The family of this 134-nucleotide RNA sequence from Cynoglossus semilaevis is "Small nucleolar RNA SNORA15". It is annotated as an H/ACA-box small nucleolar RNA. ACA15 is a member of the H/ACA class of snoRNA that guide the sites of modification of uridines to pseudouridines. The base pairs follow the family's consensus structure, which was predicted with RNAfold. Rfam 15.1 lists 974 matches to the family in 624 species. Lineage of the source: Eukaryota > Vertebrata > Osteoglossocephalai > Acanthomorphata > Cynoglossus. The literature on the family includes a 2001 paper in EMBO J by Huttenhofer et al., "RNomics: an experimental approach that identifies 201 candidates for novel, small, non-messenger RNAs in mouse".
RNA sequence: GCAUGGAUGAAUUCUGUUCCACUUUGACUGUAGUGGACACAGUCAGACACCAUGCAAUAGUCUAGGCUCAUUGCUGCUUAUAAUUGAAUGUGUAAAACACCGUGCAUCAUUUGAGCGCAGGAAUGAGUACAAUU
Numbered sequence: 001g002c003a004u005g006g007a008u009g010a011a012u013u014c015u016g017u018u019c020c021a022c023u024u025u026g027a028c029u030g031u032a033g034u035g036g037a038c039a040c041a042g043u044c045a046g047a048c049a050c051c052a053u054g055c056a057a058u059a060g061u062c063u064a065g066g067c068u069c070a071u072u073g074c075u076g077c078u079u080a081u082a083a084u085u086g087a088a089u090g091u092g093u094a095a096a097a098c099a100c101c102g103u104g105c106a107u108c109a110u111u112u113g114a115g116c117g118c119a120g121g122a123a124u125g126a127g128u129a130c131a132a133u134u
Base pairs, nucleotide, nucleotide: 001055002054003053004052005051006050014042015041016040017039067127068126069125071123072122074120075119076118081117084114085113086112087111088110089109090108